[Rfam]
RNA: Enterococcus sRNA 68 (Lacto-3 RNA)
Organism: Secundilactobacillus kimchicus
RNA sequence: UGCGAUGAGUCGAGAAAUCACGCUGCUUACUGGCAGUCCGCACAAGCGGCUUGGUGAAACUUUCGAACAGCGGGUACGUGUUCCCACCGCAUUGUGGGGUACCUUGGCUUAAAGGAAAUGUGGAUUUC
Numbered sequence: 001u002g003c004g005a006u007g008a009g010u011c012g013a014g015a016a017a018u019c020a021c022g023c024u025g026c027u028u029a030c031u032g033g034c035a036g037u038c039c040g041c042a043c044a045a046g047c048g049g050c051u052u053g054g055u056g057a058a059a060c061u062u063u064c065g066a067a068c069a070g071c072g073g074g075u076a077c078g079u080g081u082u083c084c085c086a087c088c089g090c091a092u093u094g095u096g097g098g099g100u101a102c103c104u105u106g107g108c109u110u111a112a113a114g115g116a117a118a119u120g121u122g123g124a125u126u127u128c
Stems, first nucleotide, its partner, number of pairs: 018057004022037006038049004073103005083098005115128005